[Rfam]
RNA sequence: GGUCGUAAUUCCGGCAAUCUGGAAGCGUUCUGGACGGCGGUUCGAUUCCGCCCACCUCCACCACUGAGGGGGUGUCAUGGUUUCGACAGGGCGAUAGAAGGGGAGCAGGCGGCCCGAGAGGCGACGGACGUAAUCCGCGCAAAUUCGUAAACGCCAACGAUGAGCGUUUCGCAUUGGCCGCCUAA
Number, nucleotide and partner (000 for none) at each position: 001g114002g113003u112004c111005g110006u000007a000008a000009u000010u000011c000012c000013g000014g000015c103016a000017a000018u000019c000020u000021g000022g000023a000024a000025g000026c093027g092028u091029u000030c089031u088032g087033g000034a000035c000036g052037g051038c050039g049040g048041u000042u000043c000044g000045a000046u000047u000048c040049c039050g038051c037052c036053c074054a073055c072056c071057u070058c069059c068060a000061c000062c000063a000064c000065u000066g000067a000068g059069g058070g057071g056072g055073u054074g053075u000076c000077a000078u000079g000080g000081u000082u000083u000084c000085g000086a000087c032088a031089g030090g000091g028092c027093g026094a000095u000096a000097g000098a000099a000100g000101g000102g000103g015104a000105g000106c000107a000108g000109g000110c005111g004112g003113c002114c001115c130116g129117a000118g000119a000120g000121g000122c000123g000124a000125c000126g000127g000128a000129c116130g115131u000132a000133a000134u000135c000136c000137g000138c000139g000140c000141a000142a000143a000144u000145u000146c000147g000148u000149a000150a000151a000152c000153g000154c000155c000156a000157a000158c000159g000160a000161u000162g000163a000164g000165c000166g000167u000168u000169u000170c000171g000172c000173a000174u000175u000176g000177g000178c000179c000180g000181c000182c000183u000184a000185a000
The family of this 185-nucleotide RNA sequence from a Rhodocyclaceae bacterium is "permuted transfer-messenger RNA". Rfam describes the family as follows. Bacterial tmRNA, also known as 10Sa RNA or SsrA, is named for its dual tRNA and mRNA-like properties. Its role is to liberate the mRNA from a stalled ribosome. To accomplish this part of the tmRNA is used as a reading frame that ends in a translation stop signal. The broken mRNA is replaced in the ribosome by the tmRNA and translation of the tmRNA leads to addition of a proteolysis tag to the incomplete protein enabling recognition by a protease. Taxonomically the source falls in Rhodocyclaceae (Bacteria, Pseudomonadota, Betaproteobacteria, Rhodocyclales). Its family is annotated with RNA catabolic process in the Gene Ontology.